Shown here is an 89-nucleotide sequence from Canis lupus, a member of the family "mir-8799 microRNA precursor family".
[Rfam]
RNA sequence: CGGGGGAGGCGGGAUCCUGGGCUGUGUCCCGGCGCCCUGUGCGCCGGAGCCUGCGCUGGUGGAUUCGCGCUCCAGGGCCGCAGCCCCCU
Numbered sequence: 001c002g003g004g005g006g007a008g009g010c011g012g013g014a015u016c017c018u019g020g021g022c023u024g025u026g027u028c029c030c031g032g033c034g035c036c037c038u039g040u041g042c043g044c045c046g047g048a049g050c051c052u053g054c055g056c057u058g059g060u061g062g063a064u065u066c067g068c069g070c071u072c073c074a075g076g077g078c079c080g081c082a083g084c085c086c087c088c089u
Stems, first nucleotide, its partner, number of pairs: 002088005009081004016076002019073003023069004027063003030058006039051001041050002
Source information: The family is grouped with related families in Rfam's "mir-8791 microRNA precursor clan". The family's consensus secondary structure was predicted with RNAalifold.